[Rfam]
RNA: JUMPstart RNA
RNA sequence: CAGUGCUCAGGCAGCAAGUUAAAAGGCCUGGGGCGGUAGCGAU
Dot-bracket structure: .......(((((.............))))).............
Numbered sequence: 001c002a003g004u005g006c007u008c009a010g011g012c013a014g015c016a017a018g019u020u021a022a023a024a025g026g027c028c029u030g031g032g033g034c035g036g037u038a039g040c041g042a043u
Stems, first nucleotide, its partner, number of pairs: 008030005